[Rfam]
RNA sequence: GCACAUGGAACGAAGACUAAGAACGCCACGUCGUGUGGCAACGUCUUCGUGACCAACAUCCUGUUGG
Dot-bracket structure: ..........(((((((.......(((((.....)))))...)))))))...(((((.....)))))
The family of this 67-nucleotide sequence from Paenisporosarcina antarctica is "Bacillaceae-1 RNA".
The source organism's lineage runs through Bacteria, Bacillati, Bacilli, Caryophanaceae and Paenisporosarcina.
It scores 77 bits against the family's covariance model.